[Rfam]
Rfam assigns this 117-nucleotide RNA sequence from Etheostoma spectabile to the family "U5 spliceosomal RNA". The match comes from Rfam's covariance-model search (65 bits). Rfam links the family to the GO terms U5 snRNP and spliceosomal tri-snRNP complex assembly. U5 RNA is a component of both types of known spliceosome. The organism belongs to Oligocephalus, within Eukaryota. By type it is a spliceosomal small nuclear RNA.
RNA sequence: UCAAUCUGGUUUCUCUUCAGAACACACAAGUCUUUUGCCUUUUACUAAAGACUUCCUUGGAGGUGAACGCCGAUGAGUUGAAACUAUUUUUGGUGGGCUUUGGUGUUAGGCUGAGCC
Numbered sequence: 001u002c003a004a005u006c007u008g009g010u011u012u013c014u015c016u017u018c019a020g021a022a023c024a025c026a027c028a029a030g031u032c033u034u035u036u037g038c039c040u041u042u043u044a045c046u047a048a049a050g051a052c053u054u055c056c057u058u059g060g061a062g063g064u065g066a067a068c069g070c071c072g073a074u075g076a077g078u079u080g081a082a083a084c085u086a087u088u089u090u091u092g093g094u095g096g097g098c099u100u101u102g103g104u105g106u107u108a109g110g111c112u113g114a115g116c117c
Base pairs, nucleotide, nucleotide: 003078005076006075009068010067011066012065014063015062016061017060018059019058028054029053030052031051032050033049034048035047095117097116098115099114100113102111